[Rfam]
RNA: c-di-GMP-I riboswitch aptamer
RNA sequence: AUACGAUAAUAGCAAACUUGUCGAAAGGCAAGGACGCAAAGCCAUGGGUCUAAAGUUAUUACUAUGAUUGCCAGGUUGCCGAA
Numbered sequence: 001a002u003a004c005g006a007u008a009a010u011a012g013c014a015a016a017c018u019u020g021u022c023g024a025a026a027g028g029c030a031a032g033g034a035c036g037c038a039a040a041g042c043c044a045u046g047g048g049u050c051u052a053a054a055g056u057u058a059u060u061a062c063u064a065u066g067a068u069u070g071c072c073a074g075g076u077u078g079c080c081g082a083a
Stems, first nucleotide, its partner, number of pairs: 012037002017032006040077004045073003048068003055062002